Annotation:
This 91-nucleotide RNA from Papaver somniferum belongs to the Rfam family "Small nucleolar RNA Z221/R21b". Gene Ontology terms of the family: RNA processing and nucleolus. The source organism's lineage runs through Eukaryota, Embryophyta, Ranunculales, Papaveraceae and Papaver. On this family, see Chen et al., Nucleic Acids Res 2003: "The high diversity of snoRNAs in plants: identification and comparative study of 120 snoRNA genes from Oryza sativa". The base pairs follow the family's consensus structure, which was predicted with WAR.

RNA sequence: AGGCUAUGAUGAUGUAUAAGUCAUGCACCACUCAGAGUGAUUUUUUAAAUCAGUUGCUGAUAAACGACUCACCAUUAACUAUUCUGAGCCU
Numbered sequence: 001a002g003g004c005u006a007u008g009a010u011g012a013u014g015u016a017u018a019a020g021u022c023a024u025g026c027a028c029c030a031c032u033c034a035g036a037g038u039g040a041u042u043u044u045u046u047a048a049a050u051c052a053g054u055u056g057c058u059g060a061u062a063a064a065c066g067a068c069u070c071a072c073c074a075u076u077a078a079c080u081a082u083u084c085u086g087a088g089c090c091u
Stems, first nucleotide, its partner, number of pairs: 001091004